[Rfam]
RNA sequence: AGCACUGUGUAUAUUUUUAACUUGUGGAAAAGACUUAUAGACAAGUGGAAAAAGUAAGUUCUCUUCACAAUCCAGAACUCAUUUUUCAAUAUGAGUCUUGAUUAUAUAUGAGGGAAUAUG
Numbered sequence: 001a002g003c004a005c006u007g008u009g010u011a012u013a014u015u016u017u018u019a020a021c022u023u024g025u026g027g028a029a030a031a032g033a034c035u036u037a038u039a040g041a042c043a044a045g046u047g048g049a050a051a052a053a054g055u056a057a058g059u060u061c062u063c064u065u066c067a068c069a070a071u072c073c074a075g076a077a078c079u080c081a082u083u084u085u086u087c088a089a090u091a092u093g094a095g096u097c098u099u100g101a102u103u104a105u106a107u108a109u110g111a112g113g114g115a116a117u118a119u120g
Stems, first nucleotide, its partner, number of pairs: 003047003006043003010039001014033005021026001058117005064112004073100003077096006
Shown here is a 120-nucleotide RNA from Mus spicilegus, a member of the family "Small nucleolar RNA SNORA40". A reference for the family is Ofengand and Bakin (1997), "Mapping to nucleotide resolution of pseudouridine residues in large subunit ribosomal RNAs from representative eukaryotes, prokaryotes, archaebacteria, mitochondria and chloroplasts", J Mol Biol. It is annotated as an H/ACA-box small nucleolar RNA. Its family is annotated with RNA processing and nucleolus in the Gene Ontology. The snoRNA ACA 40 belongs to the H/ACA family of snoRNAs and guides the pseudouridylation of 28S rRNA subunit at position U4565. NB This family has a high threshold value to exclude a large number of closely related sequences that do not appear to have conserved H and ACA boxes, and may be pseudogenes. A search with the family's covariance model found it, with a score of 67 bits.